[Rfam]
Rfam assigns this 201-nucleotide RNA sequence from Artemisia annua to the family "U2 spliceosomal RNA". The source organism's lineage runs through Eukaryota, Mesangiospermae, asterids, Anthemideae and Artemisia. The literature on the family includes a 2001 paper in RNA by Berglund et al., "Crystal structure of a model branchpoint-U2 snRNA duplex containing bulged adenosines". The family's RNA type in Rfam is spliceosomal small nuclear RNA. The base pairs follow the family's consensus structure, which is taken from published work.

RNA sequence: AGAUGAUCUCAGCCUUUUGGCUAAGAUCAAGUGUAAUAUCUGUUCUUAUCAGUUUAAUAUUUGAUAUGUGACUGUGAGCGAUUGGCUCACUCGAUAUUAAUCUUAUUUUUCAUGGGGAAAGACCCACUACGAUAGCUUGCUAUUGGGGUUUUUGCGAGUUGCUUUGGUGUUGCACUACUGAUUUUGCCUGGCUCACCCGUC
Numbered sequence: 001a002g003a004u005g006a007u008c009u010c011a012g013c014c015u016u017u018u019g020g021c022u023a024a025g026a027u028c029a030a031g032u033g034u035a036a037u038a039u040c041u042g043u044u045c046u047u048a049u050c051a052g053u054u055u056a057a058u059a060u061u062u063g064a065u066a067u068g069u070g071a072c073u074g075u076g077a078g079c080g081a082u083u084g085g086c087u088c089a090c091u092c093g094a095u096a097u098u099a100a101u102c103u104u105a106u107u108u109u110u111c112a113u114g115g116g117g118a119a120a121g122a123c124c125c126a127c128u129a130c131g132a133u134a135g136c137u138u139g140c141u142a143u144u145g146g147g148g149u150u151u152u153u154g155c156g157a158g159u160u161g162c163u164u165u166g167g168u169g170u171u172g173c174a175c176u177a178c179u180g181a182u183u184u185u186g187c188c189u190g191g192c193u194c195a196c197c198c199g200u201c
Stems, first nucleotide, its partner, number of pairs: 007026003011022004047066006074090006118153008132143004156194006163186001166183003